Shown here is a 66-nucleotide sequence, a member of the family "DUF3800-VIII RNA". About the family: Bacteroidetes, Cyanobacteria, Firmicutes, Planctomycetes (1 example), Proteobacteria, Tenericutes (1 example). Pairs were carried over by alignment from the consensus structure, which is taken from published work. By type it is a small RNA.
[Rfam]
RNA sequence: GAAGCCCUGAUUGUUUCGAAGCCCUACGUAUCACGCGGGGUUUAAAGUAGGAACUUUCGGGGCUUU
Numbered sequence: 001g002a003a004g005c006c007c008u009g010a011u012u013g014u015u016u017c018g019a020a021g022c023c024c025u026a027c028g029u030a031u032c033a034c035g036c037g038g039g040g041u042u043u044a045a046a047g048u049a050g051g052a053a054c055u056u057u058c059g060g061g062g063c064u065u066u
Stems, first nucleotide, its partner, number of pairs: 001066010013054001015052003021041005027035003